[Rfam]
RNA sequence: GUGCGCGUAGCUCAAGGGCAGAGCCGCGGGUUGUGAUCCCGCUGACGACGGUUCGACUCCGUUCGCGCACC
Numbered sequence: 001g002u003g004c005g006c007g008u009a010g011c012u013c014a015a016g017g018g019c020a021g022a023g024c025c026g027c028g029g030g031u032u033g034u035g036a037u038c039c040c041g042c043u044g045a046c047g048a049c050g051g052u053u054c055g056a057c058u059c060c061g062u063u064c065g066c067g068c069a070c071c
Base pairs, nucleotide, nucleotide: 001070002069003068004067005066006065007064010024011023012022013021026042027041028040029039030038047063048062049061050060051059
Rfam assigns this 71-nucleotide RNA from Variovorax paradoxus to the family "tRNA". Its family is annotated with triplet codon-amino acid adaptor activity in the Gene Ontology. The match comes from Rfam's covariance-model search (59 bits). Lineage of the source: Bacteria > Pseudomonadota > Betaproteobacteria > Burkholderiales > Variovorax.